The record is a 127-nucleotide RNA from Novosphingobium sp. Leaf2, which matches "TPP riboswitch aptamer (THI element)" in Rfam. The source organism's lineage runs through Bacteria, Pseudomonadota, Sphingomonadales, Sphingomonadaceae and Novosphingobium. The match comes from Rfam's covariance-model search (55 bits). Its family is annotated with thiamine pyrophosphate binding in the Gene Ontology.
RNA sequence: CCGUGUACCCCGGGGAGCCAGCAGCGUCCUUUCACGGAUUCUGGGCUGAGAGGUGUGGGUAUGCUCCACACGACCCGUCGAACCUGAACCCGUUAAUACGGGCGGAGGGAGUGGAGGCUGCGCCAGG
Numbered sequence: 001c002c003g004u005g006u007a008c009c010c011c012g013g014g015g016a017g018c019c020a021g022c023a024g025c026g027u028c029c030u031u032u033c034a035c036g037g038a039u040u041c042u043g044g045g046c047u048g049a050g051a052g053g054u055g056u057g058g059g060u061a062u063g064c065u066c067c068a069c070a071c072g073a074c075c076c077g078u079c080g081a082a083c084c085u086g087a088a089c090c091c092g093u094u095a096a097u098a099c100g101g102g103c104g105g106a107g108g109g110a111g112u113g114g115a116g117g118c119u120g121c122g123c124c125a126g127g
Stems, first nucleotide, its partner, number of pairs: 006115001008113001010111001011077004017046003021042001053071007083108003089102004